[Rfam]
RNA sequence: UUUGAGUUGCGCGGGAAGUAGUUGACGAAGACGAAUCCGCGGUUCUGGUCGAUGGUGUGAAACAGCGGAUGCCAGUUGAACAUCGCAAUCAUGAAUCCCGGCAGUGUGUUGGCGACAAACAUCUUGCCCGAGCAGAUCAUGCUGGCGCGCUG
Numbered sequence: 001u002u003u004g005a006g007u008u009g010c011g012c013g014g015g016a017a018g019u020a021g022u023u024g025a026c027g028a029a030g031a032c033g034a035a036u037c038c039g040c041g042g043u044u045c046u047g048g049u050c051g052a053u054g055g056u057g058u059g060a061a062a063c064a065g066c067g068g069a070u071g072c073c074a075g076u077u078g079a080a081c082a083u084c085g086c087a088a089u090c091a092u093g094a095a096u097c098c099c100g101g102c103a104g105u106g107u108g109u110u111g112g113c114g115a116c117a118a119a120c121a122u123c124u125u126g127c128c129c130g131a132g133c134a135g136a137u138c139a140u141g142c143u144g145g146c147g148c149g150c151u152g
Stems, first nucleotide, its partner, number of pairs: 002034003007029002012024003037055003040051004063152005070080001072078001085146002088143001090141004098132001099130003102126003106122002109118003